[Rfam]
RNA sequence: CCCCUCCCCUCUCACACCCCCGUGAGAAGUGAGCGGGGGGCGGUCGGGGAGGGGACA
Numbered sequence: 001c002c003c004c005u006c007c008c009c010u011c012u013c014a015c016a017c018c019c020c021c022g023u024g025a026g027a028a029g030u031g032a033g034c035g036g037g038g039g040g041c042g043g044u045c046g047g048g049g050a051g052g053g054g055a056c057a
Stems, first nucleotide, its partner, number of pairs: 001054009017039007
Dot-bracket structure: (((((((((.......(((((((.........)))))))......)))))))))...
The family of this 57-nucleotide RNA sequence from Pyrococcus furiosus is "Pab91 RNA".
The source organism's lineage runs through Archaea, Methanobacteriota, Thermococcales, Thermococcaceae and Pyrococcus furiosus.
It is one of the family's seed sequences.
Pairs were carried over by alignment from the consensus structure.
About the family: By using various computational and experimental approaches in three Pyrococcus genomes seven H/ACA sRNAs and 15 pseudouridine resides on rRNA were identified. One H/ACA motif was shown to guide up to three distinct pseudouridylations.